[Rfam]
RNA sequence: CGGGGUGAGGUAGUAGGUUGUGUGGUUUCAGGGCAGUGAUGUUGCCCCCUCGGAAGAUAACUAUACAACCUACUGCCUUCCCCGA
Numbered sequence: 001c002g003g004g005g006u007g008a009g010g011u012a013g014u015a016g017g018u019u020g021u022g023u024g025g026u027u028u029c030a031g032g033g034c035a036g037u038g039a040u041g042u043u044g045c046c047c048c049c050u051c052g053g054a055a056g057a058u059a060a061c062u063a064u065a066c067a068a069c070c071u072a073c074u075g076c077c078u079u080c081c082c083c084g085a
Base pairs, nucleotide, nucleotide: 003083004082005081007079008078009077010076011075012074013073014072015071016070017069018068019067020066021065022064023063024062025061026060031047032046033045034044049056050055
RNA: let-7 microRNA precursor family